[Rfam]
RNA: U12 minor spliceosomal RNA
RNA sequence: CAGCAAUAAUAAUUAUGAGUAAGGAAAAUAACAAUUCUGGGCGAUGCCUGAAUCCUCACUGCUAAUGUAAGAUGAAUUUUUGAGUGAGUAAAGGUUGCCCCUAAGGUGACCCGCCUAUUUUUGCGGGAUGCCUGGGAGUCGCGAUCUGCCCG
Number, nucleotide and partner (000 for none) at each position: 001c000002a000003g000004c024005a000006a000007u021008a020009a000010u000011a000012a000013u000014u000015a000016u000017g000018a000019g000020u008021a007022a000023g000024g004025a000026a000027a000028a000029u000030a000031a000032c000033a000034a053035u052036u051037c050038u000039g048040g047041g000042c000043g000044a000045u000046g000047c040048c039049u000050g037051a036052a035053u034054c000055c071056u070057c000058a068059c067060u000061g000062c000063u000064a000065a000066u000067g059068u058069a000070a056071g055072a000073u000074g000075a000076a000077u000078u000079u000080u000081u000082g000083a000084g000085u152086g151087a000088g149089u148090a000091a000092a147093g146094g145095u144096u143097g142098c141099c000100c000101c136102u135103a000104a133105g132106g131107u130108g129109a000110c127111c126112c125113g124114c123115c000116u000117a000118u000119u000120u000121u000122u000123g114124c113125g112126g111127g110128a000129u108130g107131c106132c105133u104134g000135g102136g101137a000138g000139u000140c000141g098142c097143g096144a095145u094146c093147u092148g089149c088150c000151c086152g085